[Rfam]
RNA sequence: GCGGUCUGAGGGCAGGCUGGCUUUAGUACGAGAGGAACAAGCCAGCGGCGCCACUGGUCGAUCGGUUGUCUGGCAAGGCACGGCCGAGCAGCUACGCGCCACAGGGAUAAGGGCUGAAAGCAUCUAAGCCCGAAACCCAACCCGAAAAGAGACCGCUCCAAGGGCCCUCGUAAAAGACGAGUUCGAUAGAGUCGGGGUGUACGCACCAAGGCAACGAGGUGCUCAGCCCGCGACCACUAACCGCCCAAG
Numbered sequence: 001g002c003g004g005u006c007u008g009a010g011g012g013c014a015g016g017c018u019g020g021c022u023u024u025a026g027u028a029c030g031a032g033a034g035g036a037a038c039a040a041g042c043c044a045g046c047g048g049c050g051c052c053a054c055u056g057g058u059c060g061a062u063c064g065g066u067u068g069u070c071u072g073g074c075a076a077g078g079c080a081c082g083g084c085c086g087a088g089c090a091g092c093u094a095c096g097c098g099c100c101a102c103a104g105g106g107a108u109a110a111g112g113g114c115u116g117a118a119a120g121c122a123u124c125u126a127a128g129c130c131c132g133a134a135a136c137c138c139a140a141c142c143c144g145a146a147a148a149g150a151g152a153c154c155g156c157u158c159c160a161a162g163g164g165c166c167c168u169c170g171u172a173a174a175a176g177a178c179g180a181g182u183u184c185g186a187u188a189g190a191g192u193c194g195g196g197g198u199g200u201a202c203g204c205a206c207c208a209a210g211g212c213a214a215c216g217a218g219g220u221g222c223u224c225a226g227c228c229c230g231c232g233a234c235c236a237c238u239a240a241c242c243g244c245c246c247a248a249g
Base pairs, nucleotide, nucleotide: 001156002155003154004153005152006151007150010143011142012141016046017045018044019043020042021041022040023039047100048099049098050097051096055094056093057092062087063086064085065084066083067080068079069078070077071076104138105137106136111131112130113129114128115127162246163245164244165243167181168180169179170178187239188238189237191234192233193232194231195229196228197227203222204221205220206219207218210215
Shown here is a 249-nucleotide part of an RNA from Methanothrix thermoacetophila, a member of the family "Archaeal large subunit ribosomal RNA". It scores 2883 bits against the family's covariance model. NCBI's taxonomy places the organism under Archaea, Methanomicrobia, Methanotrichales, Methanothrix, Methanothrix thermoacetophila.